[Rfam]
RNA sequence: AAGGGGGCCCCUCGGAAUCGGCAUUCAGGUGCAGGUUACAAACUACCAUUGGGUGCUGCAACCCAAAGUUGUGGUGCUGAGCGCAAAUGGAAAAGGCUGAUAAAUCAGUCAGUU
Dot-bracket structure: (.((....)).).(.((((.((((....)))).)))).)......((((((((.(((.((((.....)))).))).)).....).)))))....((((((....))))))....
RNA: Group II catalytic intron D1-D4-2
Organism: Sporomusa silvacetica